[Rfam]
RNA sequence: CCGGCAGGCUGCUUUAUCGCUCUUUGCUUUAAUGCAAGGAGAGGAAAGUCCGGGCAACGCAGGGCACCGUGCUUCCUAACGGGAAGAUCUUUGAAAAAGGAUGGUAGCGUAACAGAAAAUAACCACCUCUUUGGAGGAACGGGUGAAAAGGUGGGGUAAAAGCCCACCGGUGGUUGUGGCAACAUAGCCAGCCGUACGCCUCACGGGUUGCAAAGCCAAAUAUAUCCUGAUUGCGCGGCUGUUGCAGCGCAGCGAAGCUGCCCGUUUCGUUCCGGAUGCACACCGGAUGUCAGGAGGGGUAGGCUGCAGAGAUCCCGACAGUGAUGUCGGGGCCAGAUAAAUGAUAAAGAAUCCCGGGUUACCCGGGAUUACAGAACCCGGCUUACAAGCCUGCCAUUUUU
Dot-bracket structure: ..((((((((((((((((.((((((((......))))))))....[[[.[[[[[((((...[.[[.((((((((((.....)))))(((((.....)))).)((..(((((...........((.((((....))))...)).......((((((.......)))))).(((((((((....)))))))).)..))))))))))))))))...((((.......(((((..........................................((((..]].].))))....)))))......)))).......((((((((....))))))))..........)))))))...........................]]]]]]]].).))))))))......
Bacterial RNase P class A: a 401-nucleotide RNA from Mariniphaga anaerophila. Rfam's curators write: Ribonuclease P (RNase P) is a ubiquitous endoribonuclease, found in archaea, bacteria and eukarya as well as chloroplasts and mitochondria. The match comes from Rfam's covariance-model search (238 bits). Taxonomically the source falls in Mariniphaga (Bacteria, Pseudomonadati, Bacteroidota, Marinilabiliales).